U1 spliceosomal RNA: a 162-nucleotide RNA sequence from Carnegiea gigantea. U1 is a small nuclear RNA (snRNA) component of the spliceosome (involved in pre-mRNA splicing). It scores 107 bits against the family's covariance model. It is annotated as a spliceosomal small nuclear RNA.

[Rfam]
RNA sequence: ACACUUACCUGGACGGGGUUGAUGGGUGAUCAGGAAGACUCAUGGGCUAGGGCAGUGGCUUCCAUGGCACGUGGGAGGGGCGCUGCUCUAAGAUCUCCUCACAGUGGGAGAGUUUUUGUCAUAAUUUGUAAAAGUGGGGGCCUGCGUUCGCGCGGCCCCUGU
Numbered sequence: 001a002c003a004c005u006u007a008c009c010u011g012g013a014c015g016g017g018g019u020u021g022a023u024g025g026g027u028g029a030u031c032a033g034g035a036a037g038a039c040u041c042a043u044g045g046g047c048u049a050g051g052g053c054a055g056u057g058g059c060u061u062c063c064a065u066g067g068c069a070c071g072u073g074g075g076a077g078g079g080g081c082g083c084u085g086c087u088c089u090a091a092g093a094u095c096u097c098c099u100c101a102c103a104g105u106g107g108g109a110g111a112g113u114u115u116u117u118g119u120c121a122u123a124a125u126u127u128g129u130a131a132a133a134g135u136g137g138g139g140g141c142c143u144g145c146g147u148u149c150g151c152g153c154g155g156c157c158c159c160u161g162u
Base pairs, nucleotide, nucleotide: 012120013119014118015117016048017047019045020044021043023042024041025040026039027038049089050088051087052086055083056082057081059079060078061077062075063074091115092114093113094111095110096109098107099106135161136160137159138158139157143154144153145152146151
Dot-bracket structure: ...........((((((.(((.(((((..........)))))))).))((((..(((.(((((..........)).))).)))..)))).((((((.((......)).))).))).))))..............(((((...((((....))))..))))).